[Rfam]
RNA sequence: UGCCGAUGAGGAAGAAUUCCCAAAGAAUAGGAAGUGCCGUAUGACGCUCUAAACAGCAGCGGUGGU
Numbered sequence: 001u002g003c004c005g006a007u008g009a010g011g012a013a014g015a016a017u018u019c020c021c022a023a024a025g026a027a028u029a030g031g032a033a034g035u036g037c038c039g040u041a042u043g044a045c046g047c048u049c050u051a052a053a054c055a056g057c058a059g060c061g062g063u064g065g066u
Base pairs, nucleotide, nucleotide: 014060031050033048034047035046036045
A member of the RNA family "Small nucleolar RNA U49" from Ipomoea nil, 66 nucleotides long. A reference for the family is Brown et al. (2001), "Multiple snoRNA gene clusters from Arabidopsis", RNA. It is annotated as a C/D-box small nucleolar RNA. The family is grouped with related families in Rfam's "SNORD49 clan". Taxonomically the source falls in Ipomoea (Eukaryota, Tracheophyta, Spermatophyta, lamiids). A search with the family's covariance model found it, with a score of 58 bits. Gene Ontology terms of the family: RNA processing and nucleolus. The base pairs follow the family's consensus structure, which was predicted with CMfinder.